[Rfam]
RNA sequence: GGAUGACUGAUUUCUUCUGGUGUUCGGAGUCUAGUUCUCUUUCUAGCACCAUUUGAAAUCGGUUAUAG
Numbered sequence: 001g002g003a004u005g006a007c008u009g010a011u012u013u014c015u016u017c018u019g020g021u022g023u024u025c026g027g028a029g030u031c032u033a034g035u036u037c038u039c040u041u042u043c044u045a046g047c048a049c050c051a052u053u054u055g056a057a058a059u060c061g062g063u064u065a066u067a068g
Stems, first nucleotide, its partner, number of pairs: 003066002005063001007062008018051005026044003